RNA sequence: UAGCAGGACAACUACUGUACAGCUGCUGCAGUGCUGUAUUGUCGUUCCCCCUGCUAAAAAUAACUUGUCUCCAGCUAUCCCUGUCUGUCUACUACCCCGACAGCCAGGGACGCAAGGUCUCAGACAC
Dot-bracket structure: ..(((((......((.(((((((.........))))))).)).......))))).........................((((.((((...........)))).))))...................
RNA: Small nucleolar RNA SNORA63